[Rfam]
RNA sequence: AAUCAUUAGGGGAUUCAUCAGUACUAUUUAUGUUAUAAAAAAACCUGCCCGAGAGCAGGUUUUUGUUUAUU
Numbered sequence: 001a002a003u004c005a006u007u008a009g010g011g012g013a014u015u016c017a018u019c020a021g022u023a024c025u026a027u028u029u030a031u032g033u034u035a036u037a038a039a040a041a042a043a044c045c046u047g048c049c050c051g052a053g054a055g056c057a058g059g060u061u062u063u064u065g066u067u068u069a070u071u
Base pairs, nucleotide, nucleotide: 005022006021007020009018039064040063041062042061043060044059045058046057047056048055
Enterobacterial sRNA STnc370: a 71-nucleotide sequence from Salmonella enterica.
Pairs were carried over by alignment from the consensus structure, which was predicted with WAR.
It is annotated as a small RNA.